[Rfam]
Shown here is a 94-nucleotide RNA from Varanus komodoensis, a member of the family "Vault RNA".
The family's consensus secondary structure is taken from published work.
The family's RNA type in Rfam is non-coding RNA gene.
Nucleotides: 094
Stems, first nucleotide, its partner, number of pairs: 002089006012078004017074004025068001027066001029064001
Number, partner (000 for none) and nucleotide at each position: 001000g002089g003088g004087c005086c006085a007084g008000c009000u010000u011000a012078g013077c014076c015075u016000a017074g018073c019072g020071g021000u022000u023000a024000c025068u026000u027066c028000a029064g030000c031000g032000a033000u034000g035000u036000g037000g038000a039000u040000u041000u042000u043000a044000u045000c046000u047000a048000c049000u050000a051000c052000a053000a054000c055000c056000u057000u058000c059000a060000c061000g062000g063000u064029u065000c066027g067000c068025g069000u070000c071020c072019c073018g074017c075015g076014g077013g078012c079000g080000c081000u082000g083000c084007c085006u086005g087004g088003c089002c090000u091000u092000u093000u094000g